[Rfam]
RNA: Mammalian CPEB3 ribozyme
Organism: Alligator mississippiensis
RNA sequence: GGUUGAGAGUUUGAGGCCACAGCAGAAAUGUUCAUGGCACAGCCCUGUCAGGUUUCAGUUAAUCUGUGAAUUCUGCU
Dot-bracket structure: ............[.[[[...(((((((.((.......))..]]]]...((((((......))))))....)))))))
Numbered sequence: 001g002g003u004u005g006a007g008a009g010u011u012u013g014a015g016g017c018c019a020c021a022g023c024a025g026a027a028a029u030g031u032u033c034a035u036g037g038c039a040c041a042g043c044c045c046u047g048u049c050a051g052g053u054u055u056c057a058g059u060u061a062a063u064c065u066g067u068g069a070a071u072u073c074u075g076c077u
Stems, first nucleotide, its partner, number of pairs: 013045001015044003021077007029039002049066006